[Rfam]
This 422-nucleotide RNA sequence from Pseudanabaena sp. FACHB-2040 belongs to the Rfam family "Bacterial RNase P class A".
RNA sequence: AGAGUUGGCGCAGGCAGUUGCGGGCGGGUUUAGGCCCGUCUGAGGAAAGUCCGGGCUCCCCAAAGACCAGACUUGCUGGGUAACGCCCAGUGCGGGUGACCGUGAGGAGAGUGCCACAGAAACAUACCGCCGAUGGGAAGGCAGAGGGCAGAAGGCAGCGGAUAGAAGGGAAACCUUGUCCUGAGUCUCUGGUUUCUGGUCUUUUACAGGUAAGGGUGCAAGGGUGCGGUAAGAGCGCACCAGCAGCAUCGAGAGGUGCUGGCUCGGUAAACCCCGGUUGGGAGCAAGGUCGCAGGGGCGAUGGUUGGUCUUUUUCCAGCUCCGCUAAAGAGAACCGCAAGAGGCGGCUGGUAACAGCCGUCCCAGAUAGAUAACCGCCCUCCGUCAGGAGAACAGAACCCGGCUUAUGUCCGGCUCUUUCC
Numbered sequence: 001a002g003a004g005u006u007g008g009c010g011c012a013g014g015c016a017g018u019u020g021c022g023g024g025c026g027g028g029u030u031u032a033g034g035c036c037c038g039u040c041u042g043a044g045g046a047a048a049g050u051c052c053g054g055g056c057u058c059c060c061c062a063a064a065g066a067c068c069a070g071a072c073u074u075g076c077u078g079g080g081u082a083a084c085g086c087c088c089a090g091u092g093c094g095g096g097u098g099a100c101c102g103u104g105a106g107g108a109g110a111g112u113g114c115c116a117c118a119g120a121a122a123c124a125u126a127c128c129g130c131c132g133a134u135g136g137g138a139a140g141g142c143a144g145a146g147g148g149c150a151g152a153a154g155g156c157a158g159c160g161g162a163u164a165g166a167a168g169g170g171a172a173a174c175c176u177u178g179u180c181c182u183g184a185g186u187c188u189c190u191g192g193u194u195u196c197u198g199g200u201c202u203u204u205u206a207c208a209g210g211u212a213a214g215g216g217u218g219c220a221a222g223g224g225u226g227c228g229g230u231a232a233g234a235g236c237g238c239a240c241c242a243g244c245a246g247c248a249u250c251g252a253g254a255g256g257u258g259c260u261g262g263c264u265c266g267g268u269a270a271a272c273c274c275c276g277g278u279u280g281g282g283a284g285c286a287a288g289g290u291c292g293c294a295g296g297g298g299c300g301a302u303g304g305u306u307g308g309u310c311u312u313u314u315u316c317c318a319g320c321u322c323c324g325c326u327a328a329a330g331a332g333a334a335c336c337g338c339a340a341g342a343g344g345c346g347g348c349u350g351g352u353a354a355c356a357g358c359c360g361u362c363c364c365a366g367a368u369a370g371a372u373a374a375c376c377g378c379c380c381u382c383c384g385u386c387a388g389g390a391g392a393a394c395a396g397a398a399c400c401c402g403g404c405u406u407a408u409g410u411c412c413g414g415c416u417c418u419u420u421c422c
Base pairs, nucleotide, nucleotide: 001418002417003416004415005414006413007412008411010410011409012408013379014378015377017375018374019373021042022041023040024039025038026037027036028035029034047406048405049404051403052402053401054400055399056284057283058282059281065314066313070279071278072277074276075275076090077089078088079087080086091105092103093102094101095100106274107273111272112271113268114267115266127215128214129211130210131209134206135205136204137203223241224240225239226238227237228236243263244261245260246259247258248257249256250255288336289335290334300325303322305319306318307317308316343362344361345360346359347358348357349356350355

By type it is a ribozyme.
A search with the family's covariance model found it, with a score of 243 bits.
The family's consensus secondary structure is taken from published work.